[Rfam]
A member of the RNA family "6S-Flavo RNA" from Cochleicola gelatinilyticus, 108 nucleotides long. By type it is a small RNA. Lineage of the source: Bacteria > Pseudomonadati > Bacteroidota > Flavobacteriaceae > Cochleicola. Pairs were carried over by alignment from the consensus structure, which is taken from published work.
RNA sequence: ACUCAACACGAAUUCUUUAAAAAGGGUGAGUUAAAGUUGUAAAAGCGAGCCGUCUUUGAGCGGAUACUUGACCAACUUGUUAGCCCUAAACUUUUCUUUAAGGAGUUU
Numbered sequence: 001a002c003u004c005a006a007c008a009c010g011a012a013u014u015c016u017u018u019a020a021a022a023a024g025g026g027u028g029a030g031u032u033a034a035a036g037u038u039g040u041a042a043a044a045g046c047g048a049g050c051c052g053u054c055u056u057u058g059a060g061c062g063g064a065u066a067c068u069u070g071a072c073c074a075a076c077u078u079g080u081u082a083g084c085c086c087u088a089a090a091c092u093u094u095u096c097u098u099u100a101a102g103g104a105g106u107u108u
Stems, first nucleotide, its partner, number of pairs: 023087005034078005043069003050063004